MIR2912 microRNA precursor family: a 156-nucleotide sequence from Populus tomentosa.
Its family is annotated with RISC complex and miRNA-mediated post-transcriptional gene silencing in the Gene Ontology.
RNA sequence: UCUAGAACUCAAGAUAUGAGUUGAACACGGAAUAGUGUCUGGGCUGCAGGACAGCUUCGGACUUCUUCGUUGUUCCUACAAUUUGGACUUCAAAAUGGCUUUUUUAAAUCUUGGGCUCCUCAUGAAAGUUGCAGGCCUUUAUCUUACAUUUCCAUC
Numbered sequence: 001u002c003u004a005g006a007a008c009u010c011a012a013g014a015u016a017u018g019a020g021u022u023g024a025a026c027a028c029g030g031a032a033u034a035g036u037g038u039c040u041g042g043g044c045u046g047c048a049g050g051a052c053a054g055c056u057u058c059g060g061a062c063u064u065c066u067u068c069g070u071u072g073u074u075c076c077u078a079c080a081a082u083u084u085g086g087a088c089u090u091c092a093a094a095a096u097g098g099c100u101u102u103u104u105u106a107a108a109u110c111u112u113g114g115g116c117u118c119c120u121c122a123u124g125a126a127a128g129u130u131g132c133a134g135g136c137c138u139u140u141a142u143c144u145u146a147c148a149u150u151u152c153c154a155u156c
Stems, first nucleotide, its partner, number of pairs: 003154001005152003009146001011145006018138001020136001021134003025130001027129002035123003041119003045115001048112004054105001059100002062098002069091001072088003